Annotation: Shown here is a 148-nucleotide RNA sequence from Ferroacidibacillus organovorans, a member of the family "c-di-AMP riboswitch aptamer (ydaO/yuaA leader)". The organism belongs to Ferroacidibacillus, within Bacteria.

RNA sequence: CCGCGGGAAGGGCCGAAUCUCCUUUUUUUGGAGAACGGGGGAACCAUUUGUGGGGUGAAUAGAGUGGACUGCGCCCGCAGUCGCUCUUAGGCGCGUAUUAUUUCGCCGAAUCCGUCAGCUAACCUCGUAGGCGAAUACUGGUGGCGAC
Numbered sequence: 001c002c003g004c005g006g007g008a009a010g011g012g013c014c015g016a017a018u019c020u021c022c023u024u025u026u027u028u029u030g031g032a033g034a035a036c037g038g039g040g041g042a043a044c045c046a047u048u049u050g051u052g053g054g055g056u057g058a059a060u061a062g063a064g065u066g067g068a069c070u071g072c073g074c075c076c077g078c079a080g081u082c083g084c085u086c087u088u089a090g091g092c093g094c095g096u097a098u099u100a101u102u103u104c105g106c107c108g109a110a111u112c113c114g115u116c117a118g119c120u121a122a123c124c125u126c127g128u129a130g131g132c133g134a135a136u137a138c139u140g141g142u143g144g145c146g147a148c
Stems, first nucleotide, its partner, number of pairs: 012132003018034005035128006045052002053113003061087007090107004